This 68-nucleotide RNA sequence from Nocardia speluncae belongs to the Rfam family "ASdes TB sRNA".
RNA sequence: AGCGCGACGGGGUCCACGCCCCGGGUGACGACCAGGUAGUCACGCAUGGCGAUACCGUGCCGGUUCUC
Numbered sequence: 001a002g003c004g005c006g007a008c009g010g011g012g013u014c015c016a017c018g019c020c021c022c023g024g025g026u027g028a029c030g031a032c033c034a035g036g037u038a039g040u041c042a043c044g045c046a047u048g049g050c051g052a053u054a055c056c057g058u059g060c061c062g063g064u065u066c067u068c
Base pairs, nucleotide, nucleotide: 005062006061008059009058012029013028015027016026017025035056036055037054038053040052041051043049
The family has 26 seed sequences and 1,192 matches in Rfam 15.1. Taxonomically the source falls in Nocardia (Bacteria, Bacillati, Actinomycetota, Nocardiaceae). The base pairs follow the family's consensus structure, which is taken from published work. By type it is a small RNA.